[Rfam]
RNA sequence: UUAGCAUCGGUGAUGUUACAUCCAUCUUAACUCAUCCUUGCACUAUGAGUCAACCGGUGAAGAAACUAUUGGGGGAAUAUUUUGUCUGAGAUGCUC
Numbered sequence: 001u002u003a004g005c006a007u008c009g010g011u012g013a014u015g016u017u018a019c020a021u022c023c024a025u026c027u028u029a030a031c032u033c034a035u036c037c038u039u040g041c042a043c044u045a046u047g048a049g050u051c052a053a054c055c056g057g058u059g060a061a062g063a064a065a066c067u068a069u070u071g072g073g074g075g076a077a078u079a080u081u082u083u084g085u086c087u088g089a090g091a092u093g094c095u096c
Stems, first nucleotide, its partner, number of pairs: 003095006
Shown here is a 96-nucleotide RNA from Oryza barthii, a member of the family "Small nucleolar RNA snoR26". The literature on the family includes a 2001 paper in RNA by Brown et al., "Multiple snoRNA gene clusters from Arabidopsis". The family's consensus secondary structure was predicted with WAR. The match comes from Rfam's covariance-model search (79 bits). NCBI's taxonomy places the organism under Eukaryota, Embryophyta, Petrosaviidae, Oryzoideae, Oryza.